[Rfam]
RNA sequence: GGGCGAUUAACUCAGCGGUAGAGUGCUAUCUUCACACGGUAGAAGUCACUGGUUCGAACCCAGUAUCGCCCA
Numbered sequence: 001g002g003g004c005g006a007u008u009a010a011c012u013c014a015g016c017g018g019u020a021g022a023g024u025g026c027u028a029u030c031u032u033c034a035c036a037c038g039g040u041a042g043a044a045g046u047c048a049c050u051g052g053u054u055c056g057a058a059c060c061c062a063g064u065a066u067c068g069c070c071c072a
Base pairs, nucleotide, nucleotide: 001071002070003069004068005067006066007065010024011023012022013021026042027041028040029039030038048064049063050062051061052060
Background:
The record is a 72-nucleotide RNA from Desulforapulum autotrophicum, which matches "tRNA" in Rfam. The source organism's lineage runs through Bacteria, Thermodesulfobacteriota, Desulfobacteria, Desulfobacterales and Desulforapulum autotrophicum. The family's consensus secondary structure is taken from published work. It scores 64 bits against the family's covariance model.